[Rfam]
RNA sequence: CCCCGUACAUUGUGCGGGGCGCGUAUUCUGCAUUGCAACAAAGGGGUCUGCUCGUG
Numbered sequence: 001c002c003c004c005g006u007a008c009a010u011u012g013u014g015c016g017g018g019g020c021g022c023g024u025a026u027u028c029u030g031c032a033u034u035g036c037a038a039c040a041a042a043g044g045g046g047u048c049u050g051c052u053c054g055u056g
Base pairs, nucleotide, nucleotide: 001019002018003017004016005015006014007013008012
Rfam assigns this 56-nucleotide RNA sequence from Trabulsiella odontotermitis to the family "ClpQY promoter". Pairs were carried over by alignment from the consensus structure. The family's RNA type in Rfam is cis-regulatory element.